About this RNA
The record is an 81-nucleotide sequence from Alligator sinensis, which matches "Mammalian CPEB3 ribozyme" in Rfam. The mammalian CPEB3 ribozyme is a self cleaving RNA located in the second intron of the CPEB3 gene which belongs to a family of genes regulating messenger RNA polyadenylation. Lineage of the source: Eukaryota > Sarcopterygii > Archelosauria > Crocodylia > Alligator.
[Rfam]
RNA sequence: AGAGGUUGCAAGUUCAAGGCCAUAGCAGACGUGCUCACAGCACGGCCCUGUCAAAUUUCAACCAAAUCUGUGAAUUCUGCU
Numbered sequence: 001a002g003a004g005g006u007u008g009c010a011a012g013u014u015c016a017a018g019g020c021c022a023u024a025g026c027a028g029a030c031g032u033g034c035u036c037a038c039a040g041c042a043c044g045g046c047c048c049u050g051u052c053a054a055a056u057u058u059c060a061a062c063c064a065a066a067u068c069u070g071u072g073a074a075u076u077c078u079g080c081u
Base pairs, nucleotide, nucleotide: 018047019046020045021044024081025080026079027078028077029076031043032042033041052070053069055067056066057065058064